[Rfam]
RNA sequence: CGAGCACGUGCGGGAGAGUCCGAUCGCCCGGGAGGGCGAACGGCGCCGAAGGAGCAACUCCUCCCCGGAAUCUCUCAGGCCGAAGUACCGCACUGGCGAG
Number, nucleotide and partner (000 for none) at each position: 001c000002g000003a000004g000005c000006a000007c000008g093009u092010g091011c090012g089013g088014g000015a000016g000017a000018g000019u000020c043021c042022g041023a000024u000025c000026g000027c000028c000029c000030g000031g000032g000033a000034g000035g000036g000037c000038g000039a000040a000041c022042g021043g020044c000045g080046c079047c078048g076049a075050a000051g000052g074053a073054g072055c000056a000057a000058c068059u067060c000061c000062u000063c000064c000065c000066c000067g059068g058069a000070a000071u000072c054073u053074c052075u049076c048077a000078g047079g046080c045081c000082g000083a000084a000085g000086u000087a000088c013089c012090g011091c010092a009093c008094u000095g000096g000097c000098g000099a000100g000

This 100-nucleotide sequence from Streptacidiphilus pinicola belongs to the Rfam family "Glycine riboswitch aptamer".
From the family's description: This family represents the bacterial glycine riboswitch. Glycine riboswitches usually consist of two metabolite-binding aptamers domains with similar structures in tandem. The aptamers cooperatively bind glycine to regulate the expression of downstream genes. In Bacillus subtilis, this riboswitch is found upstream of the gcvT operon which controls glycine degradation.
For this family Rfam cites "A glycine-dependent riboswitch that uses cooperative binding to control gene expression" (Mandal et al., Science, 2004).